Background: Shown here is an 89-nucleotide RNA from Haemonchus placei, a member of the family "mir-5886 microRNA precursor family".
[Rfam]
RNA sequence: AUUGCAUUUUCUUCGAGCUGGGUCAUGAAUGUGUUCUUGUACAGUGCUAAGAACACUCUUUGACUUCGGUUUGAAGAGUUAUGUGCAGU
Numbered sequence: 001a002u003u004g005c006a007u008u009u010u011c012u013u014c015g016a017g018c019u020g021g022g023u024c025a026u027g028a029a030u031g032u033g034u035u036c037u038u039g040u041a042c043a044g045u046g047c048u049a050a051g052a053a054c055a056c057u058c059u060u061u062g063a064c065u066u067c068g069g070u071u072u073g074a075a076g077a078g079u080u081a082u083g084u085g086c087a088g089u
Base pairs, nucleotide, nucleotide: 001089002088003087004086005085006084007083009081010077011076012075013074014073015072016071017070018069020066021065022064023063024062025061029057031056032055033054034053035052036051037050038049039048
Source information: Taxonomically the source falls in Haemonchus (Eukaryota, Opisthokonta, Bilateria, Ecdysozoa).